This 59-nucleotide RNA sequence from Streptomyces flaveus belongs to the Rfam family "msiK RNA". The family's consensus secondary structure is taken from published work. It scores 60 bits against the family's covariance model. Lineage of the source: Bacteria > Bacillati > Kitasatosporales > Streptomycetaceae > Streptomyces. By type it is a cis-regulatory element.
RNA sequence: UGGCACCACCUUCCACAACGGAUCGUCCGGCACGUUCCUGCCGGUAGAAGGGGGCCCAU
Numbered sequence: 001u002g003g004c005a006c007c008a009c010c011u012u013c014c015a016c017a018a019c020g021g022a023u024c025g026u027c028c029g030g031c032a033c034g035u036u037c038c039u040g041c042c043g044g045u046a047g048a049a050g051g052g053g054g055c056c057c058a059u
Stems, first nucleotide, its partner, number of pairs: 009051005015045001027044006